Overview:
Rfam assigns this 214-nucleotide RNA sequence from Hemibagrus wyckioides to the family "Small nucleolar RNA U3".
RNA sequence: AAGACUAUAUUUUCAGUGAUCUUUUCCAGAGUGACUGACUAGAAAAUGUGAUUUUUAAGUGAUACGUUUUUCUAAUCACGAUGAAGAGCUGUGAUGUAUUCUUCUGAGUGUGAAUCAGAUUCAAGUUAAUGAUUUUUGUCACAGCCUUGAGUUGUUGAUGAAUGUUGUCUGUUUCUUAUGAAGCAGGAGAGGAAGAGUACAUGAUCAGAGUGAU
Numbered sequence: 001a002a003g004a005c006u007a008u009a010u011u012u013u014c015a016g017u018g019a020u021c022u023u024u025u026c027c028a029g030a031g032u033g034a035c036u037g038a039c040u041a042g043a044a045a046a047u048g049u050g051a052u053u054u055u056u057a058a059g060u061g062a063u064a065c066g067u068u069u070u071u072c073u074a075a076u077c078a079c080g081a082u083g084a085a086g087a088g089c090u091g092u093g094a095u096g097u098a099u100u101c102u103u104c105u106g107a108g109u110g111u112g113a114a115u116c117a118g119a120u121u122c123a124a125g126u127u128a129a130u131g132a133u134u135u136u137u138g139u140c141a142c143a144g145c146c147u148u149g150a151g152u153u154g155u156u157g158a159u160g161a162a163u164g165u166u167g168u169c170u171g172u173u174u175c176u177u178a179u180g181a182a183g184c185a186g187g188a189g190a191g192g193a194a195g196a197g198u199a200c201a202u203g204a205u206c207a208g209a210g211u212g213a214u
Base pairs, nucleotide, nucleotide: 002040003039005037008033009032010031011030016026018024048065049064050063053062054061075214076213077212078211079210094202095201096200097199098198099197100196101195102194103193104192105191108165109164110163118153119152120151121150124147125146127144130141131140132139168188169187170185171184172183173182174181175180
The family has 87 seed sequences and 19,072 matches in Rfam 15.1. The family's RNA type in Rfam is C/D-box small nucleolar RNA. The family's consensus secondary structure is taken from published work. Small nucleolar RNAs (snoRNAs) are involved in the processing and modification of rRNA in the nucleolus. On this family, see Zwieb, Nucleic Acids Res 1997: "The uRNA database".